A member of the RNA family "Y RNA" from Saimiri boliviensis, 102 nucleotides long. The base pairs follow the family's consensus structure, which is taken from published work. The source organism's lineage runs through Eukaryota, Euteleostomi, Sarcopterygii, Tetrapoda and Saimiri boliviensis.
RNA sequence: GGCUGGUCUGAGUGCAGUGACGUUUACACCUAACUGAUCACAACCAGUUAAAGAUUCCUUUGUUCAUUCUUCACUCCUACUGCUUCAGUUGGCUAGCCUUAA
Numbered sequence: 001g002g003c004u005g006g007u008c009u010g011a012g013u014g015c016a017g018u019g020a021c022g023u024u025u026a027c028a029c030c031u032a033a034c035u036g037a038u039c040a041c042a043a044c045c046a047g048u049u050a051a052a053g054a055u056u057c058c059u060u061u062g063u064u065c066a067u068u069c070u071u072c073a074c075u076c077c078u079a080c081u082g083c084u085u086c087a088g089u090u091g092g093c094u095a096g097c098c099u100u101a102a
Base pairs, nucleotide, nucleotide: 001098002097003096004095005094006093007092008091010090011089014086016081017080018079019078022076032064033063034062036060037059